[Rfam]
RNA sequence: GUCGGCUAUGGAGACAUGGUGCCCGUCACCGUGGGCGGCAAGAUCGUGGGCUCGCUGUGUGCCAUCGCCGGUGUGCUCACCAUCUCCCUGCCGGUGCCCGUCAUCGUCUCCAAC
Numbered sequence: 001g002u003c004g005g006c007u008a009u010g011g012a013g014a015c016a017u018g019g020u021g022c023c024c025g026u027c028a029c030c031g032u033g034g035g036c037g038g039c040a041a042g043a044u045c046g047u048g049g050g051c052u053c054g055c056u057g058u059g060u061g062c063c064a065u066c067g068c069c070g071g072u073g074u075g076c077u078c079a080c081c082a083u084c085u086c087c088c089u090g091c092c093g094g095u096g097c098c099c100g101u102c103a104u105c106g107u108c109u110c111c112a113a114c
Stems, first nucleotide, its partner, number of pairs: 001114002004111002008107004013102003018097001021095002037077004049063003
A member of the RNA family "Potassium channel RNA editing signal" from Oryctolagus cuniculus, 114 nucleotides long. Pairs were carried over by alignment from the consensus structure, which is taken from published work. From the family's description: This family represents a group of sequences related to the human potassium channel Kv1.1 hairpin element which directs the efficient modification of an adenosine to inosine by an adenosine deaminase acting on RNA (ADAR). The ADAR modification causes an isoleucine/valine recoding event which lies in the ion-conducting pore of the potassium channel. It is thought that this editing event targets the process of fast inactivation and allows a more rapid recovery from inactivation at negative potentials. On this family, see Bhalla et al., Nat Struct Mol Biol 2004: "Control of human potassium channel inactivation by editing of a small mRNA hairpin".